[Rfam]
RNA sequence: AAAAAAACAAACCCUAAGUUUUUUUUUCCAACUUUAACUGUCCGUCUUAUAUGAAAUUUUUUUAUAAUUCGUAUUUUUAUUUAUGUUAGAUGAUAAAACAUAAUUAAUAUUUUAUGCGUGACUUGUCUUUUUAAUUUUUUUAAUAUUUUUUCAAAUAAAACGGACGGUUUGAACACGAAAAUAAGGAUUUAUU
Number, nucleotide and partner (000 for none) at each position: 001a000002a000003a000004a000005a000006a000007a000008c000009a000010a000011a000012c000013c000014c000015u000016a000017a000018g000019u000020u000021u000022u000023u000024u000025u000026u000027u173028c000029c171030a170031a169032c000033u000034u000035u000036a000037a168038c167039u166040g165041u164042c163043c162044g161045u160046c000047u158048u157049a156050u155051a000052u000053g000054a000055a000056a000057u000058u000059u000060u000061u000062u000063u000064a000065u000066a000067a000068u000069u000070c000071g000072u000073a000074u000075u000076u000077u000078u000079a000080u000081u000082u000083a000084u000085g000086u000087u000088a000089g000090a000091u000092g000093a000094u000095a000096a000097a000098a000099c000100a000101u000102a000103a000104u000105u000106a000107a000108u000109a000110u000111u000112u000113u000114a000115u000116g000117c000118g000119u000120g000121a000122c000123u000124u000125g000126u000127c000128u000129u000130u000131u000132u000133a000134a000135u000136u000137u000138u000139u000140u000141u000142a000143a000144u000145a000146u000147u000148u000149u000150u000151u000152c000153a000154a000155a050156u049157a048158a047159a000160a045161c044162g043163g042164a041165c040166g039167g038168u037169u031170u030171g029172a000173a027174c000175a000176c000177g000178a000179a000180a000181a000182u000183a000184a000185g000186g000187a000188u000189u000190u000191a000192u000193u000

Overview
MIR812 microRNA precursor family: a 193-nucleotide RNA from Oryza rufipogon. A search with the family's covariance model found it, with a score of 98 bits. Pairs were carried over by alignment from the consensus structure, which was predicted with RNAalifold. The family has 22 seed sequences and 57,451 matches in Rfam 15.1. Rfam links the family to the GO terms RISC complex and miRNA-mediated post-transcriptional gene silencing.